[Rfam]
Shown here is a 78-nucleotide RNA from Alligator mississippiensis, a member of the family "Mammalian CPEB3 ribozyme".
It scores 47 bits against the family's covariance model.
The source organism's lineage runs through Eukaryota, Metazoa, Gnathostomata, Alligatorinae and Alligator.
RNA sequence: AGGGCAAGAGUAGAAGGCCAUAGCAGAAGCACUUAUGGUAUGGCCCUGUUGGAUUCCAAUGAAUCUGCGAAUUCUGCU
Numbered sequence: 001a002g003g004g005c006a007a008g009a010g011u012a013g014a015a016g017g018c019c020a021u022a023g024c025a026g027a028a029g030c031a032c033u034u035a036u037g038g039u040a041u042g043g044c045c046c047u048g049u050u051g052g053a054u055u056c057c058a059a060u061g062a063a064u065c066u067g068c069g070a071a072u073u074c075u076g077c078u
Base pairs, nucleotide, nucleotide: 013046016045017044018043019042022078023077024076025075026074027073028072029041031039050067051066052065053064054063055062056061